Rfam assigns this 67-nucleotide RNA from Alteribacillus iranensis to the family "Bacillaceae-1 RNA".
RNA sequence: GGAGAAGGAAGUUCGACUAAGAACGUCACGUCCUGUGACAACGUCGAACUGACCCACAUCGUGUGGG
Number, nucleotide and partner (000 for none) at each position: 001g000002g000003a000004g000005a000006a000007g000008g000009a000010a000011g049012u048013u047014c046015g045016a044017c043018u000019a000020a000021g000022a000023a000024c000025g039026u038027c037028a036029c035030g000031u000032c000033c000034u000035g029036u028037g027038a026039c025040a000041a000042c000043g017044u016045c015046g014047a013048a012049c011050u000051g000052a000053c067054c066055c065056a064057c063058a000059u000060c000061g000062u000063g057064u056065g055066g054067g053